Annotation:
A member of the RNA family "Small nucleolar RNA U2-19" from Rousettus aegyptiacus, 81 nucleotides long. It scores 68 bits against the family's covariance model. The literature on the family includes a 2004 paper in Curr Biol by Tycowski et al., "Guide RNAs with 5' Caps and Novel Box C/D snoRNA-like Domains for Modification of snRNAs in Metazoa". NCBI's taxonomy places the organism under Eukaryota, Eumetazoa, Amniota, Chiroptera, Rousettus.
[Rfam]
RNA sequence: GGACAGCGACAAAAAUAGUUAAAUCUGAGCAUCAGAAGACCUUUCUAAUCUAGCAAAUGCAUGAUAUCUGUAGUUCUGAGA
Numbered sequence: 001g002g003a004c005a006g007c008g009a010c011a012a013a014a015a016u017a018g019u020u021a022a023a024u025c026u027g028a029g030c031a032u033c034a035g036a037a038g039a040c041c042u043u044u045c046u047a048a049u050c051u052a053g054c055a056a057a058u059g060c061a062u063g064a065u066a067u068c069u070g071u072a073g074u075u076c077u078g079a080g081a
Stems, first nucleotide, its partner, number of pairs: 029060004037051003